[Rfam]
RNA: Plant signal recognition particle RNA
RNA sequence: GCUGAGCUGGGUUACUCCAGCUUGUGACCCAAGUGGGAGCAUUACUGUGAUGGAACAACACUAAGGCUUGCUGGGUUGGGCUGUGUUUGCAAUAUGUUGGCCUGCCCACUCCGAGUUGAGAGUUGAGUCUGGGGACUUUAGUGAAGGCUAAGGUCUCUUGGCUCUUAGAGUGGAGGGCACAGCGUGAGGCUGGCUUCACAGAGCAGCGACCUCCUCCCACUCCCAACAGUGGAGGGAUCACAGGCUACUGCAACCUCAGUCCCUAAUGGCCUUCACAGGCUACUGCAACCUCAGUC
Number, nucleotide and partner (000 for none) at each position: 001g040002c039003u038004g023005a022006g021007c020008u019009g018010g017011g016012u000013u000014a000015c000016u011017c010018c009019a008020g007021c006022u005023u004024g000025u000026g000027a000028c037029c036030c035031a000032a000033g000034u000035g030036g029037g028038a003039g002040c001041a000042u000043u000044a295045c294046u293047g292048u000049g290050a000051u288052g000053g286054a000055a000056c285057a284058a000059c000060a000061c000062u000063a000064a000065g000066g276067c000068u000069u000070g000071c000072u000073g272074g271075g270076u269077u268078g262079g261080g260081c259082u258083g257084u000085g255086u000087u253088u252089g251090c000091a000092a249093u000094a000095u000096g000097u000098u247099g246100g245101c244102c243103u242104g241105c000106c236107c235108a000109c234110u233111c232112c231113g230114a000115g227116u226117u225118g224119a000120g222121a221122g220123u219124u000125g164126a163127g162128u161129c160130u000131g158132g157133g156134g155135a154136c153137u152138u151139u150140a149141g148142u147143g000144a000145a000146g000147g142148c141149u140150a139151a138152g137153g136154u135155c134156u133157c132158u131159u000160g129161g128162c127163u126164c125165u170166u000167a000168g000169a000170g165171u000172g217173g216174a215175g214176g213177g212178c000179a000180c000181a000182g000183c208184g207185u206186g000187a000188g000189g000190c201191u200192g199193g000194c000195u000196u000197c000198a000199c192200a191201g190202a000203g000204c000205a000206g185207c184208g183209a000210c000211c000212u177213c176214c175215u174216c173217c172218c000219a123220c122221u121222c120223c000224c118225a117226a116227c115228a000229g000230u113231g112232g111233a110234g109235g107236g106237a000238u000239c000240a000241c104242a103243g102244g101245c100246u099247a098248c000249u092250g000251c089252a088253a087254c000255c085256u000257c083258a082259g081260u080261c079262c078263c000264u000265a000266a000267u000268g077269g076270c075271c074272u073273u000274c000275a000276c066277a000278g000279g000280c000281u000282a000283c000284u057285g056286c053287a000288a051289c000290c049291u000292c047293a046294g045295u044296c000